[Rfam]
RNA: ZMP/ZTP riboswitch aptamer (pfl RNA motif)
Organism: Baekduia soli
RNA sequence: CCCGACCGUCGCGACUGGCGUCUCGAGGUGGGUCACCACCGGGGAGCGACGGGUCUCCGCCGCCGCACGCCUGGGCACUCCCA
Numbered sequence: 001c002c003c004g005a006c007c008g009u010c011g012c013g014a015c016u017g018g019c020g021u022c023u024c025g026a027g028g029u030g031g032g033u034c035a036c037c038a039c040c041g042g043g044g045a046g047c048g049a050c051g052g053g054u055c056u057c058c059g060c061c062g063c064c065g066c067a068c069g070c071c072u073g074g075g076c077a078c079u080c081c082c083a
Stems, first nucleotide, its partner, number of pairs: 004054001006052007015043002017071005028039004062076003
Dot-bracket structure: ...(.(((((((..(([[[[[......((((....))))..))..))))))).).......(((..]]]]]..))).......